Shown here is a 73-nucleotide RNA sequence from Conger conger, a member of the family "mir-133 microRNA precursor family".
For this family Rfam cites "Identification of tissue-specific microRNAs from mouse" (Lagos-Quintana et al., Curr Biol, 2002).
It scores 68 bits against the family's covariance model.

[Rfam]
RNA sequence: CUGCAGUGGCUGGUCAAACGGAACCAAGUCACUGUUACUGCGAGGUUUGGUCCCCUUCAACCAGCCACGGCAC
Number, nucleotide and partner (000 for none) at each position: 001c000002u000003g071004c070005a000006g068007u000008g066009g065010c064011u063012g062013g061014u060015c000016a000017a057018a056019c000020g053021g052022a051023a000024c050025c049026a048027a047028g046029u045030c044031a000032c000033u000034g000035u000036u000037a000038c000039u000040g000041c000042g000043a000044g030045g029046u028047u027048u026049g025050g024051u022052c021053c020054c000055c000056u018057u017058c000059a000060a014061c013062c012063a011064g010065c009066c008067a000068c006069g000070g004071c003072a000073c000
Rfam describes the family as follows. mir-133 was first experimentally characterised in mouse and homologues have since been discovered in several other species. The mature sequence is excised from the 3' arm of the hairpin.